[Rfam]
RNA: Prion pseudoknot
RNA sequence: CGGUGGUGGUGGCUGGGGACAGCCCCAUGGUGGGGGUGGCUGG
Numbered sequence: 001c002g003g004u005g006g007u008g009g010u011g012g013c014u015g016g017g018g019a020c021a022g023c024c025c026c027a028u029g030g031u032g033g034g035g036g037u038g039g040c041u042g043g
Base pairs, nucleotide, nucleotide: 001030003028004027005026006025